Rfam assigns this 105-nucleotide RNA from Demequina lutea to the family "TPP riboswitch aptamer (THI element)".
RNA sequence: CGUCAGCGACAGGGGAGCGCCAUCCGGCGCUGAGAGUGCGGCUUGCCGCAGACCCUCGAACCUGCUCCGGUUAGCACCGGCGAAGGGAGUCGGGAAGUCUCAAGU
Numbered sequence: 001c002g003u004c005a006g007c008g009a010c011a012g013g014g015g016a017g018c019g020c021c022a023u024c025c026g027g028c029g030c031u032g033a034g035a036g037u038g039c040g041g042c043u044u045g046c047c048g049c050a051g052a053c054c055c056u057c058g059a060a061c062c063u064g065c066u067c068c069g070g071u072u073a074g075c076a077c078c079g080g081c082g083a084a085g086g087g088a089g090u091c092g093g094g095a096a097g098u099c100u101c102a103a104g105u
Stems, first nucleotide, its partner, number of pairs: 007092004011056004017030005037050005061086003067080004
The base pairs follow the family's consensus structure, which is taken from published work. The organism belongs to Demequina, within Bacteria. Its family is annotated with thiamine pyrophosphate binding in the Gene Ontology.